Notes: The record is a 164-nucleotide RNA sequence from Rhipicephalus microplus, which matches "U1 spliceosomal RNA" in Rfam. About the family: U1 is a small nuclear RNA (snRNA) component of the spliceosome (involved in pre-mRNA splicing). It is annotated as a spliceosomal small nuclear RNA. On this family, see Charenton et al., Science 2019: "Mechanism of 5' splice site transfer for human spliceosome activation". Taxonomically the source falls in Boophilus (Eukaryota, Opisthokonta, Eumetazoa, Ecdysozoa).
RNA sequence: AUACUUACCUGGUGUCGGGGUGACCGUGGUCAAUAUGGCGGUGCCCCCAGGUAGAGGCGCGGGCAUUGCACUGCGCUCGUGCUGACCCCUGCCACUACCCCAAACUGGGGCAGAUGGGGCAUGCAAUUUUUGGUAGUGGGGGACUGCGUUCGCGCUCUCCCCCU
Numbered sequence: 001a002u003a004c005u006u007a008c009c010u011g012g013u014g015u016c017g018g019g020g021u022g023a024c025c026g027u028g029g030u031c032a033a034u035a036u037g038g039c040g041g042u043g044c045c046c047c048c049a050g051g052u053a054g055a056g057g058c059g060c061g062g063g064c065a066u067u068g069c070a071c072u073g074c075g076c077u078c079g080u081g082c083u084g085a086c087c088c089c090u091g092c093c094a095c096u097a098c099c100c101c102a103a104a105c106u107g108g109g110g111c112a113g114a115u116g117g118g119g120c121a122u123g124c125a126a127u128u129u130u131u132g133g134u135a136g137u138g139g140g141g142g143a144c145u146g147c148g149u150u151c152g153c154g155c156u157c158u159c160c161c162c163c164u
Stems, first nucleotide, its partner, number of pairs: 012122004017047005023042005049090003054086001056083003060079005092117003095113001099108002138163006146155003